This 189-nucleotide RNA sequence from Prevotella koreensis belongs to the Rfam family "Bacteroidales-1 6S-Bacteroidales RNA suggested". For this family Rfam cites "A high-resolution transcriptome map identifies small RNA regulation of metabolism in the gut microbe Bacteroides thetaiotaomicron" (Ryan et al., Nat Commun, 2020). Rfam describes the family as follows. Bacteroidales-1 was first reported in a comparative genomics-based approach of genome and metagenome sequences from Weinberg et al. 2010 In a high-resolution transcriptome map study of Bacteroides thetaiotaomicron, Ryan et al. 2020 report this sRNA as 6S RNA homologue of Bacteroides, in the study they obtain evidence of small product RNAs (pRNAs) related to 6S function. The base pairs follow the family's consensus structure, which is taken from published work. The match comes from Rfam's covariance-model search (144 bits).
RNA sequence: GGCCGUAUCGUAUAGAUAGGGAUACUCAUCAAAUAAAUACAGAAAACCGAGAAGACUUCUUUUGUCAAUGGCGGGCCAUAUAAAGUUCAUUCGUGAACCUAAGCCGUAGGGCCGGUGGAUUACAAAGACGGAGAGUUCUCAAAUUAUUUCAGCUCGGAGUUUCAUCACUUCAUCGAUACGGCCAUUUUC
Number, nucleotide and partner (000 for none) at each position: 001g000002g000003c000004c000005g000006u000007a000008u000009c000010g000011u000012a000013u000014a000015g000016a000017u000018a000019g000020g000021g000022a000023u000024a000025c000026u000027c000028a000029u000030c000031a000032a000033a000034u000035a000036a000037a000038u000039a000040c000041a000042g000043a000044a000045a000046a000047c000048c000049g000050a000051g000052a000053a000054g000055a136056c135057u134058u000059c133060u000061u132062u131063u130064g129065u128066c127067a000068a000069u124070g123071g000072c000073g000074g000075g000076c118077c117078a116079u115080a000081u000082a000083a000084a000085g000086u000087u096088c095089a094090u000091u000092c000093g000094u089095g088096a087097a000098c000099c000100u000101a000102a000103g112104c111105c110106g000107u000108a000109g000110g105111g104112c103113c000114g000115g079116u078117g077118g076119a000120u000121u000122a000123c070124a069125a000126a000127g066128a065129c064130g063131g062132a061133g059134a057135g056136u055137u000138c000139u000140c000141a000142a000143a000144u000145u000146a000147u000148u000149u000150c000151a000152g000153c000154u000155c000156g000157g000158a000159g000160u000161u000162u000163c000164a000165u000166c000167a000168c000169u000170u000171c000172a000173u000174c000175g000176a000177u000178a000179c000180g000181g000182c000183c000184a000185u000186u000187u000188u000189c000